Description
The family of this 241-nucleotide RNA sequence from Chiloscyllium punctatum is "Small nucleolar RNA SNORD17". Pairs were carried over by alignment from the consensus structure, which was predicted with RNAalifold. Gene Ontology terms of the family: nucleolus and RNA processing. The family's RNA type in Rfam is C/D-box small nucleolar RNA. The source organism's lineage runs through Eukaryota, Opisthokonta, Chordata, Elasmobranchii and Chiloscyllium. It scores 94 bits against the family's covariance model.

RNA sequence: GUGAAAUGAUGAAUAAGUUUAUCCAUUCGCCGAGUGAUGCUAACCACUUGCUUCGCAGCACACUGAGUCUUGUUUAAGCCUCUGGGUGAAAUACAUUUAUCUUGUGCCAUGUAAUUUUUUUGGCGUUCUGCUGAGAAGUUACUGGUCCCUGAUUGGGUGUAUGUGGAUGUGAGAUGGUUUGGCAGGAUUUGAAUCCUUUUGGGAUCUAAUUCUACUAAGAUGAAUGAUGCGAUCUGAUCAC
Numbered sequence: 001g002u003g004a005a006a007u008g009a010u011g012a013a014u015a016a017g018u019u020u021a022u023c024c025a026u027u028c029g030c031c032g033a034g035u036g037a038u039g040c041u042a043a044c045c046a047c048u049u050g051c052u053u054c055g056c057a058g059c060a061c062a063c064u065g066a067g068u069c070u071u072g073u074u075u076a077a078g079c080c081u082c083u084g085g086g087u088g089a090a091a092u093a094c095a096u097u098u099a100u101c102u103u104g105u106g107c108c109a110u111g112u113a114a115u116u117u118u119u120u121u122g123g124c125g126u127u128c129u130g131c132u133g134a135g136a137a138g139u140u141a142c143u144g145g146u147c148c149c150u151g152a153u154u155g156g157g158u159g160u161a162u163g164u165g166g167a168u169g170u171g172a173g174a175u176g177g178u179u180u181g182g183c184a185g186g187a188u189u190u191g192a193a194u195c196c197u198u199u200u201g202g203g204a205u206c207u208a209a210u211u212c213u214a215c216u217a218a219g220a221u222g223a224a225u226g227a228u229g230c231g232a233u234c235u236g237a238u239c240a241c
Base pairs, nucleotide, nucleotide: 010240011239012238014236017233018232019231024226025225026224027223028222029221030219034215035214039183040182041181042180043178044177045176046175048173049172051169053167054166056163057162059088060087061086063084065082066081067080069078070077071076093160094159095158096157097156098155099154106147108145111142112141113140114139115137116136119135120134121133122132123131124130125129185212186211187210188209189208191206192205194203195202